RNA: Glycine riboswitch aptamer
RNA sequence: CUCUGGAGAGACUCAUAGAGCACCGAAGGAGCAAACCCAAAAUUUUUGGACUAAACUCUCAGGUAAAAGGACAGAG
Number, nucleotide and partner (000 for none) at each position: 001c076002u075003c074004u073005g072006g000007a000008g000009a000010g000011a000012c020013u019014c018015a000016u000017a000018g014019a013020g012021c000022a064023c063024c062025g060026a059027a000028g000029g058030a057031g056032c000033a000034a000035a000036c000037c000038c000039a000040a000041a000042a000043u000044u000045u000046u000047u000048g000049g000050a000051c000052u000053a000054a000055a000056c031057u030058c029059u026060c025061a000062g024063g023064u022065a000066a000067a000068a000069g000070g000071a000072c005073a004074g003075a002076g001